A member of the RNA family "SAM riboswitch aptamer (S box leader)" from Zhouia amylolytica, 113 nucleotides long.
The match comes from Rfam's covariance-model search (81 bits).
Its family is annotated with regulation of gene expression in the Gene Ontology.
Taxonomically the source falls in Zhouia amylolytica (Bacteria, Flavobacteriia, Flavobacteriales, Flavobacteriaceae).

RNA sequence: AUGUUAUCAAGAAAGGUGGAGGGAUUAGACCCAAAGAAACCUUAGCAACCCUUUGACUUGUCAGAGAAGGUGCUGCAUUCUACCUCAAAUUACAACUUGAGGAUAGAUAACAA
Numbered sequence: 001a002u003g004u005u006a007u008c009a010a011g012a013a014a015g016g017u018g019g020a021g022g023g024a025u026u027a028g029a030c031c032c033a034a035a036g037a038a039a040c041c042u043u044a045g046c047a048a049c050c051c052u053u054u055g056a057c058u059u060g061u062c063a064g065a066g067a068a069g070g071u072g073c074u075g076c077a078u079u080c081u082a083c084c085u086c087a088a089a090u091u092a093c094a095a096c097u098u099g100a101g102g103a104u105a106g107a108u109a110a111c112a113a
Stems, first nucleotide, its partner, number of pairs: 002112007013043005021032003026082004044074004049070002051066004078105001083102006